RNA sequence: AUGUGUCUUGCUUCAUCAGUGUUUGGACAGAACAG
Numbered sequence: 001a002u003g004u005g006u007c008u009u010g011c012u013u014c015a016u017c018a019g020u021g022u023u024u025g026g027a028c029a030g031a032a033c034a035g
Base pairs, nucleotide, nucleotide: 002034003033004032006031007030008029010028012027013026014025015024017021
The family of this 35-nucleotide RNA sequence from Chrysochloris asiatica is "Iron response element I". Rfam classes the family as a cis-regulatory element. On this family, see Zhang et al., Insect Mol Biol 2001: "Repression of Manduca sexta ferritin synthesis by IRP1/IRE interaction". Rfam 15.1 lists 6,829 matches to the family in 599 species. It scores 34 bits against the family's covariance model. The base pairs follow the family's consensus structure, which is taken from published work.